[Rfam]
Shown here is a 118-nucleotide RNA sequence from Camphora micrantha, a member of the family "Small nucleolar RNA snoR104". Lineage of the source: Eukaryota > Viridiplantae > Streptophytina > Mesangiospermae > Camphora. The family's consensus secondary structure was predicted with WAR. Gene Ontology terms of the family: nucleolus and RNA processing. A search with the family's covariance model found it, with a score of 82 bits. A reference for the family is Marker et al. (2002), "Experimental RNomics: identification of 140 candidates for small non-messenger RNAs in the plant Arabidopsis thaliana", Curr Biol. Rfam classes the family as an H/ACA-box small nucleolar RNA. The family has 8 seed sequences and 612 matches in Rfam 15.1.
RNA sequence: GGGGAGCAAUCGAAAGCAGCGAUGUUAACCCGAUACAAUCUUCCUACAGAAAAAUUGUAAUUUCCUGCUUGUAGUACGGCAAGCAAGUUCUGCAAGUCUCAAAUUACAGGACAUUUGG
Numbered sequence: 001g002g003g004g005a006g007c008a009a010u011c012g013a014a015a016g017c018a019g020c021g022a023u024g025u026u027a028a029c030c031c032g033a034u035a036c037a038a039u040c041u042u043c044c045u046a047c048a049g050a051a052a053a054a055u056u057g058u059a060a061u062u063u064c065c066u067g068c069u070u071g072u073a074g075u076a077c078g079g080c081a082a083g084c085a086a087g088u089u090c091u092g093c094a095a096g097u098c099u100c101a102a103a104u105u106a107c108a109g110g111a112c113a114u115u116u117g118g
Base pairs, nucleotide, nucleotide: 001031002030003029005026006025007024008023010021056111058109067097068096069095070094071093072092073091074090076088077087